[Rfam]
RNA: FMN riboswitch aptamer (RFN element)
RNA sequence: GCCUGUUCUCAGGGCGGGGCGAAAUUCCCCACCGGCGGUAAGCGGCCGAAACCGCAAGCCCGCGAGCGCCUGCCUUCGGGCAGGGUCAGCAGAUCAGGUGCGAUUCCUGGGCCGACGGUCAUAGUCCGGAUGAAAGAGAACCAUC
Numbered sequence: 001g002c003c004u005g006u007u008c009u010c011a012g013g014g015c016g017g018g019g020c021g022a023a024a025u026u027c028c029c030c031a032c033c034g035g036c037g038g039u040a041a042g043c044g045g046c047c048g049a050a051a052c053c054g055c056a057a058g059c060c061c062g063c064g065a066g067c068g069c070c071u072g073c074c075u076u077c078g079g080g081c082a083g084g085g086u087c088a089g090c091a092g093a094u095c096a097g098g099u100g101c102g103a104u105u106c107c108u109g110g111g112c113c114g115a116c117g118g119u120c121a122u123a124g125u126c127c128g129g130a131u132g133a134a135a136g137a138g139a140a141c142c143a144u145c
Base pairs, nucleotide, nucleotide: 005141006140007139008138009137010136017029018028019027031125032124033114034113035063036062037061038060058112059111066090067089094110095109096108097107098106116128117127118126